The family of this 70-nucleotide RNA from Synaphobranchus kaupii is "MAT2A 3'UTR stem loop A".
A search with the family's covariance model found it, with a score of 64 bits.
The family's consensus secondary structure is taken from published work.
A reference for the family is Parker et al. (2011), "New families of human regulatory RNA structures identified by comparative analysis of vertebrate genomes", Genome Res.

[Rfam]
RNA sequence: GCUUUUUUUCCCCCAGGCCUGUUGGUGUAUACUACAGAGAAGCCUACAAGGUUUUAGGGGGGGAAAAGGC
Numbered sequence: 001g002c003u004u005u006u007u008u009u010c011c012c013c014c015a016g017g018c019c020u021g022u023u024g025g026u027g028u029a030u031a032c033u034a035c036a037g038a039g040a041a042g043c044c045u046a047c048a049a050g051g052u053u054u055u056a057g058g059g060g061g062g063g064a065a066a067a068g069g070c
Stems, first nucleotide, its partner, number of pairs: 001070004008064004015054003020048002024044003027035002